[Rfam]
RNA sequence: CCUGCGCACAACAGGUCAUCGGAAUGUGGUUCGCCGACGCGAACUGAACCGGACA
Number, nucleotide and partner (000 for none) at each position: 001c015002c014003u013004g012005c000006g000007c000008a000009c000010a000011a000012c004013a003014g002015g001016u000017c000018a000019u000020c051021g050022g049023a000024a000025u000026g000027u000028g045029g044030u043031u042032c041033g040034c039035c000036g000037a000038c000039g034040c033041g032042a031043a030044c029045u028046g000047a000048a000049c022050c021051g020052g000053a000054c000055a000
RNA: eL15-Euryarchaeota ribosomal protein leader
Organism: Haloarchaeobius iranensis